[Rfam]
RNA sequence: GGGGCGCCUUGUUAGACUUGGCUCAGACCUCAGCUUCACAAGCUGAUGGCCUGAGUCAGGAGGCCAAGGCUCUCC
Numbered sequence: 001g002g003g004g005c006g007c008c009u010u011g012u013u014a015g016a017c018u019u020g021g022c023u024c025a026g027a028c029c030u031c032a033g034c035u036u037c038a039c040a041a042g043c044u045g046a047u048g049g050c051c052u053g054a055g056u057c058a059g060g061a062g063g064c065c066a067a068g069g070c071u072c073u074c075c
Stems, first nucleotide, its partner, number of pairs: 001075004006070001009067003012062002017060006024053003028049002030046006
Dot-bracket structure: ((((.(..(((((...((((((.(((.((((((((.....)))))).)).))).))))))))..)))..).))))
RNA: mir-631 microRNA precursor family